Rfam assigns this 107-nucleotide sequence from Halanaerobium praevalens to the family "Glycine riboswitch aptamer". The source organism's lineage runs through Bacteria, Bacillati, Halanaerobiaceae, Halanaerobium and Halanaerobium praevalens. The match comes from Rfam's covariance-model search (65 bits).
RNA sequence: UUGAAGGAUACAGGAGAGAGCAUAAUUUUAUGCCGCCGAAGGAGUAAGGUUUUUAUUUGCUCAAAAUAAAAGCUGAAACUCUCAGGUAAAAGGACCGUAUCUGGACA
Numbered sequence: 001u002u003g004a005a006g007g008a009u010a011c012a013g014g015a016g017a018g019a020g021c022a023u024a025a026u027u028u029u030a031u032g033c034c035g036c037c038g039a040a041g042g043a044g045u046a047a048g049g050u051u052u053u054u055a056u057u058u059g060c061u062c063a064a065a066a067u068a069a070a071a072g073c074u075g076a077a078a079c080u081c082u083c084a085g086g087u088a089a090a091a092g093g094a095c096c097g098u099a100u101c102u103g104g105a106c107a
Base pairs, nucleotide, nucleotide: 006102007101008100009099010098011097013095020033021032022031023030035087036086037085038083039082042081043080044079048074049073050072051071052070053069054068055067056066057065058064